Shown here is a 102-nucleotide RNA sequence from Bacillus sp. V3-13, a member of the family "Purine riboswitch aptamer". Gene Ontology term of the family: purine nucleobase biosynthetic process. A search with the family's covariance model found it, with a score of 89 bits. NCBI's taxonomy places the organism under Bacteria, Bacillati, Bacillota, Caryophanales, Bacillus.
[Rfam]
RNA sequence: AAGAAUAUUGUCAUAAUACGUCGUAUAAUCUUGGGAAUAUGGCCCAACAGUUUCUACCGAGCUGCCGUAAACAGUUUGACUACGAGGUAUGUGUUUUUAUUC
Numbered sequence: 001a002a003g004a005a006u007a008u009u010g011u012c013a014u015a016a017u018a019c020g021u022c023g024u025a026u027a028a029u030c031u032u033g034g035g036a037a038u039a040u041g042g043c044c045c046a047a048c049a050g051u052u053u054c055u056a057c058c059g060a061g062c063u064g065c066c067g068u069a070a071a072c073a074g075u076u077u078g079a080c081u082a083c084g085a086g087g088u089a090u091g092u093g094u095u096u097u098u099a100u101u102c
Stems, first nucleotide, its partner, number of pairs: 018088002021085005029049001031047005058078007